A member of the RNA family "MIR7502 microRNA precursor family" from Gossypium mustelinum, 144 nucleotides long. The base pairs follow the family's consensus structure, which was predicted with RNAalifold. Rfam 15.1 lists 74,505 matches to the family in 24 species. The match comes from Rfam's covariance-model search (93 bits).

[Rfam]
RNA sequence: UGUUAAAACUUUCAUCAAUUUCUACCGAUAAAAACUGGCAUGGCUAAGGGAAAACCAGACAGUUACACCUAGCAUGCCACGUGUACCACAUUUUGACGUACAAGGACCAGUUUUUAACAGUAGAAAUGUAUGAAAUUUUUAAUA
Numbered sequence: 001u002g003u004u005a006a007a008a009c010u011u012u013c014a015u016c017a018a019u020u021u022c023u024a025c026c027g028a029u030a031a032a033a034a035c036u037g038g039c040a041u042g043g044c045u046a047a048g049g050g051a052a053a054a055c056c057a058g059a060c061a062g063u064u065a066c067a068c069c070u071a072g073c074a075u076g077c078c079a080c081g082u083g084u085a086c087c088a089c090a091u092u093u094u095g096a097c098g099u100a101c102a103a104g105g106a107c108c109a110g111u112u113u114u115u116a117a118c119a120g121u122a123g124a125a126a127u128g129u130a131u132g133a134a135a136u137u138u139u140u141a142a143u144a
Stems, first nucleotide, its partner, number of pairs: 002143007010135006018127008029116005